[Rfam]
Shown here is a 123-nucleotide RNA sequence from Sporosarcina sp. HYO08, a member of the family "epsC RNA". The family's RNA type in Rfam is cis-regulatory element. NCBI's taxonomy places the organism under Bacteria, Bacillati, Caryophanales, Caryophanaceae, Sporosarcina. Pairs were carried over by alignment from the consensus structure, which is taken from published work.
RNA sequence: AGGUGAUGCCUCCUAACCUUUAUCAACGGAGGCACUCGGCUAUGCUGUGGGUGGCGCGUUUUCGCGUUGCCUUAGAUGCGUUUGGUUAUCGGGAGUAUGGUGUGAGGUGGGGUUGGAUGCCCU
Numbered sequence: 001a002g003g004u005g006a007u008g009c010c011u012c013c014u015a016a017c018c019u020u021u022a023u024c025a026a027c028g029g030a031g032g033c034a035c036u037c038g039g040c041u042a043u044g045c046u047g048u049g050g051g052u053g054g055c056g057c058g059u060u061u062u063c064g065c066g067u068u069g070c071c072u073u074a075g076a077u078g079c080g081u082u083u084g085g086u087u088a089u090c091g092g093g094a095g096u097a098u099g100g101u102g103u104g105a106g107g108u109g110g111g112g113u114u115g116g117a118u119g120c121c122c123u
Stems, first nucleotide, its partner, number of pairs: 001019004007034007035106004039101008049072008075090004109123005